[Rfam]
RNA: Bacterial RNase P class A
RNA sequence: CGAGUAAGUCAGAUAAUCGCUGCUAAGUUUACUUAGGAGAGGAAAGUCCGAGCUCCGUAGGGCAGGGUGCUGGGUAACUCCCAGUCAAGGUGACUUGAAGGAAAGUGCAACAGAGAUAUACCGCCAGAUUUUUAAUUUAUUAAAAUGAGAGCAGUUACGGCUGACUGGUAAGGAUGGAAAGGCGAGGUAAGAGCUCACCAGCGCAUUGGCGACUUUGCGGCUAUGUAAACCCCACUUGGAGCAAGACCGAAUAGGAUGGCAUAUGGGGCUGCCCGUCCCGCCAUCGGGUGUGUCGCUUGAGCUUAUUGGUAACAAUAGGCCUAGAUAGAUGAUUGUCAAAUACAGAACUCGGCUUAUAGAUUUAGUCGCGCA
Numbered sequence: 001c002g003a004g005u006a007a008g009u010c011a012g013a014u015a016a017u018c019g020c021u022g023c024u025a026a027g028u029u030u031a032c033u034u035a036g037g038a039g040a041g042g043a044a045a046g047u048c049c050g051a052g053c054u055c056c057g058u059a060g061g062g063c064a065g066g067g068u069g070c071u072g073g074g075u076a077a078c079u080c081c082c083a084g085u086c087a088a089g090g091u092g093a094c095u096u097g098a099a100g101g102a103a104a105g106u107g108c109a110a111c112a113g114a115g116a117u118a119u120a121c122c123g124c125c126a127g128a129u130u131u132u133u134a135a136u137u138u139a140u141u142a143a144a145a146u147g148a149g150a151g152c153a154g155u156u157a158c159g160g161c162u163g164a165c166u167g168g169u170a171a172g173g174a175u176g177g178a179a180a181g182g183c184g185a186g187g188u189a190a191g192a193g194c195u196c197a198c199c200a201g202c203g204c205a206u207u208g209g210c211g212a213c214u215u216u217g218c219g220g221c222u223a224u225g226u227a228a229a230c231c232c233c234a235c236u237u238g239g240a241g242c243a244a245g246a247c248c249g250a251a252u253a254g255g256a257u258g259g260c261a262u263a264u265g266g267g268g269c270u271g272c273c274c275g276u277c278c279c280g281c282c283a284u285c286g287g288g289u290g291u292g293u294c295g296c297u298u299g300a301g302c303u304u305a306u307u308g309g310u311a312a313c314a315a316u317a318g319g320c321c322u323a324g325a326u327a328g329a330u331g332a333u334u335g336u337c338a339a340a341u342a343c344a345g346a347a348c349u350c351g352g353c354u355u356a357u358a359g360a361u362u363u364a365g366u367c368g369c370g371c372a
Base pairs, nucleotide, nucleotide: 001368002367003366005364006363007362008361009360010359011357012337013336014335015334016333017332018331020039021038023036024035025034026033027032044355045354046353048352049351050350051349052348053241054240055239056238060274061273062272063271065237066236067235068234069233070084071083072082073081074080085099086097087096088095089094100232101231105230106229107226108225109224121173122172123169124168125167126166127165129163181199182198184196185195186194201221202219203218204217205216208213245294246293247292255285256284257283258282259281260280265279266278267277268276269275301320302319303318304317305316306315307314308313